[Rfam]
RNA: TPP riboswitch aptamer (THI element)
RNA sequence: AGCGCUCAGCAGGGGCGUCUCUUAUUCCGGGAGGCUGAGAAGUACCCUAAAACCUGAUCCCGAUCAUGCGGGCGGAGGGAGCUUCCAAUGAUUUUAC
Numbered sequence: 001a002g003c004g005c006u007c008a009g010c011a012g013g014g015g016c017g018u019c020u021c022u023u024a025u026u027c028c029g030g031g032a033g034g035c036u037g038a039g040a041a042g043u044a045c046c047c048u049a050a051a052a053c054c055u056g057a058u059c060c061c062g063a064u065c066a067u068g069c070g071g072g073c074g075g076a077g078g079g080a081g082c083u084u085c086c087a088a089u090g091a092u093u094u095u096a097c
Stems, first nucleotide, its partner, number of pairs: 008083003011048004016042001017035007053078003059072004